Rfam assigns this 139-nucleotide RNA from Halopolyspora algeriensis to the family "Group II catalytic intron D1-D4-4". For this family Rfam cites "Control of branch-site choice by a group II intron" (Chu et al., EMBO J, 2001). Its family is annotated with Group II intron splicing in the Gene Ontology. The base pairs follow the family's consensus structure. Group II introns are found in rRNA, tRNA and mRNA of organelles in fungi, plants and protists, and also in mRNA in bacteria.
RNA sequence: CUGCCGGUGUGAGUACGGCCCGGGGAGCUGUCAGGGGCCCGGUAGCAGGCUGGCGGCUUGGUCUGGAAACGGGUUAGGGCGAAGCCCAACGUAGAAAGCCCCCAUGGGGGAAGCGACGCCAGCCACCUGCGCACCGACC
Numbered sequence: 001c002u003g004c005c006g007g008u009g010u011g012a013g014u015a016c017g018g019c020c021c022g023g024g025g026a027g028c029u030g031u032c033a034g035g036g037g038c039c040c041g042g043u044a045g046c047a048g049g050c051u052g053g054c055g056g057c058u059u060g061g062u063c064u065g066g067a068a069a070c071g072g073g074u075u076a077g078g079g080c081g082a083a084g085c086c087c088a089a090c091g092u093a094g095a096a097a098g099c100c101c102c103c104a105u106g107g108g109g110g111a112a113g114c115g116a117c118g119c120c121a122g123c124c125a126c127c128u129g130c131g132c133a134c135c136g137a138c139c
Base pairs, nucleotide, nucleotide: 020042021041022040023039024038049090051088052087053086054081055080057078058077059076063072065070100110101109102108113132114131115130